[Rfam]
RNA sequence: GCCAUCCCGUGUGACUGGCGAAUUUAGGUGGGCGACCACCGGGGAGCGCGGGAGCAACGACCGCCGCUCGCCUGGGCAUUUCUC
Number, nucleotide and partner (000 for none) at each position: 001g000002c000003c000004a000005u053006c052007c051008c050009g049010u048011g047012u046013g000014a000015c043016u042017g072018g071019c070020g069021a068022a000023u000024u000025u000026a000027g000028g039029u038030g037031g036032g000033c000034g000035a000036c031037c030038a029039c028040c000041g000042g016043g015044g000045a000046g012047c011048g010049c009050g008051g007052g006053a005054g000055c000056a000057a000058c000059g000060a000061c000062c000063g077064c076065c075066g000067c000068u021069c020070g019071c018072c017073u000074g000075g065076g064077c063078a000079u000080u000081u000082c000083u000084c000

Shown here is an 84-nucleotide RNA from Phenylobacterium hankyongense, a member of the family "ZMP/ZTP riboswitch aptamer (pfl RNA motif)". It scores 59 bits against the family's covariance model. The organism belongs to Phenylobacterium, within Bacteria. Gene Ontology terms of the family: regulation of purine nucleotide biosynthetic process and one-carbon metabolic process.